[Rfam]
RNA: c-di-AMP riboswitch aptamer (ydaO/yuaA leader)
Organism: Nocardioides guangzhouensis
RNA sequence: UCGGGCACCGCGCCGAGUUCGGAACCGUGGACGGGGAAGUCCGUCGGAACUGGAGCCGGGGAACCACCAAACCCCUGGGGUGAAUCACACGCAAGGCGGUCUCGGGACCGAGGAGCGUGCGUAGGGCUGCUGCGCCCGAACCCGUCAGCUAACCCGGUAGGCGUCCAGAAACAGAGGGA
Numbered sequence: 001u002c003g004g005g006c007a008c009c010g011c012g013c014c015g016a017g018u019u020c021g022g023a024a025c026c027g028u029g030g031a032c033g034g035g036g037a038a039g040u041c042c043g044u045c046g047g048a049a050c051u052g053g054a055g056c057c058g059g060g061g062a063a064c065c066a067c068c069a070a071a072c073c074c075c076u077g078g079g080g081u082g083a084a085u086c087a088c089a090c091g092c093a094a095g096g097c098g099g100u101c102u103c104g105g106g107a108c109c110g111a112g113g114a115g116c117g118u119g120c121g122u123a124g125g126g127c128u129g130c131u132g133c134g135c136c137c138g139a140a141c142c143c144g145u146c147a148g149c150u151a152a153c154c155c156g157g158u159a160g161g162c163g164u165c166c167a168g169a170a171a172c173a174g175a176g177g178g179a
Stems, first nucleotide, its partner, number of pairs: 011163004018054005055158006065077002078143003086121001088119005124137004